RNA sequence: GAAAAUGAUAGAGGUGCGGGGCUUCAGGAGUAUCGGUUGACAUAAGGUCGGAACCAGUCAGCCGGGAAAGGGAAGACCGCCGAAGGGAUUCAUCCGUUCCGAAGGAUGAGUUUCUGGGCUGCCGCAGAAUAUGCGUCAGACUGUCACAGGACUGUGGAGAGCUAUCAUAGGU
Numbered sequence: 001g002a003a004a005a006u007g008a009u010a011g012a013g014g015u016g017c018g019g020g021g022c023u024u025c026a027g028g029a030g031u032a033u034c035g036g037u038u039g040a041c042a043u044a045a046g047g048u049c050g051g052a053a054c055c056a057g058u059c060a061g062c063c064g065g066g067a068a069a070g071g072g073a074a075g076a077c078c079g080c081c082g083a084a085g086g087g088a089u090u091c092a093u094c095c096g097u098u099c100c101g102a103a104g105g106a107u108g109a110g111u112u113u114c115u116g117g118g119c120u121g122c123c124g125c126a127g128a129a130u131a132u133g134c135g136u137c138a139g140a141c142u143g144u145c146a147c148a149g150g151a152c153u154g155u156g157g158a159g160a161g162c163u164a165u166c167a168u169a170g171g172u
Base pairs, nucleotide, nucleotide: 006167007166008165009164010163011162016080017079018078019077022075023074024073025072033065034064035063036062037061038060039059040058084115085114086113087112088111089110090109091108092107093106094105095104116142117141119139120138121137123135124134125133126132144157145156146155147154148153
The record is a 172-nucleotide sequence from Anaerosacchariphilus hominis, which matches "Lysine riboswitch aptamer" in Rfam. NCBI's taxonomy places the organism under Bacteria, Clostridia, Lachnospirales, Lachnospiraceae, Anaerosacchariphilus. The match comes from Rfam's covariance-model search (106 bits).